This 83-nucleotide sequence from Kribbella voronezhensis belongs to the Rfam family "ZMP/ZTP riboswitch aptamer (pfl RNA motif)". Pairs were carried over by alignment from the consensus structure, which is taken from published work. Lineage of the source: Bacteria > Actinomycetes > Propionibacteriales > Kribbellaceae > Kribbella. The match comes from Rfam's covariance-model search (51 bits).
RNA sequence: UACCGACGUCGCGACUGGCGCUGAGGUGGGAUCGACCACCGGGGAGCGAAAAGACGCCGGCACCGUGCGCCUGGGUGCCGCGA
Number, nucleotide and partner (000 for none) at each position: 001u000002a000003c000004c000005g000006a000007c000008g000009u049010c048011g047012c046013g000014a000015c043016u042017g071018g070019c069020g068021c067022u000023g000024a000025g000026g039027u038028g037029g036030g000031a000032u000033c000034g000035a000036c029037c028038a027039c026040c000041g000042g016043g015044g000045a000046g012047c011048g010049a009050a000051a000052a000053g000054a000055c000056g000057c000058c000059g000060g078061c077062a076063c075064c074065g000066u000067g021068c020069g019070c018071c017072u000073g000074g064075g063076u062077g061078c060079c000080g000081c000082g000083a000